Rfam assigns this 83-nucleotide RNA sequence from Paraburkholderia phenazinium to the family "ZMP/ZTP riboswitch aptamer (pfl RNA motif)".
[Rfam]
RNA sequence: AUGGGCCUGCGCGACUGGCGAGAAAAGAUGGAUCACCAUCGGGAAGCGUAGAGGCCGCACCGCCGUUCGCCUGGGCAUCUUGA
Numbered sequence: 001a002u003g004g005g006c007c008u009g010c011g012c013g014a015c016u017g018g019c020g021a022g023a024a025a026a027g028a029u030g031g032a033u034c035a036c037c038a039u040c041g042g043g044a045a046g047c048g049u050a051g052a053g054g055c056c057g058c059a060c061c062g063c064c065g066u067u068c069g070c071c072u073g074g075g076c077a078u079c080u081u082g083a
Stems, first nucleotide, its partner, number of pairs: 003055001007051006015043002017071005028039004062076003

A search with the family's covariance model found it, with a score of 59 bits. Pairs were carried over by alignment from the consensus structure, which is taken from published work.